[Rfam]
RNA sequence: GCCGAUGACGAUUCAAUCCACUUGUUCGAGGUGCAGCGGAAUUGAGACCCUGUUUACAGGGAGGACCCCUCAGUGAAACUGCAUUCAUAUGAAUUUAAUGGAUUUAACUGAGGU
Numbered sequence: 001g002c003c004g005a006u007g008a009c010g011a012u013u014c015a016a017u018c019c020a021c022u023u024g025u026u027c028g029a030g031g032u033g034c035a036g037c038g039g040a041a042u043u044g045a046g047a048c049c050c051u052g053u054u055u056a057c058a059g060g061g062a063g064g065a066c067c068c069c070u071c072a073g074u075g076a077a078a079c080u081g082c083a084u085u086c087a088u089a090u091g092a093a094u095u096u097a098a099u100g101g102a103u104u105u106a107a108c109u110g111a112g113g114u
Stems, first nucleotide, its partner, number of pairs: 001114003048061005

Record summary:
The family of this 114-nucleotide sequence from Malus baccata is "Small nucleolar RNA Z278". A search with the family's covariance model found it, with a score of 43 bits. It is annotated as a C/D-box small nucleolar RNA. Its family is annotated with RNA processing and nucleolus in the Gene Ontology. The organism belongs to Malus, within Eukaryota. snoZ278 is a C/D box small nucleolar RNA. Its methylation guide targets have not been reported. On this family, see Chen et al., Nucleic Acids Res 2003: "The high diversity of snoRNAs in plants: identification and comparative study of 120 snoRNA genes from Oryza sativa".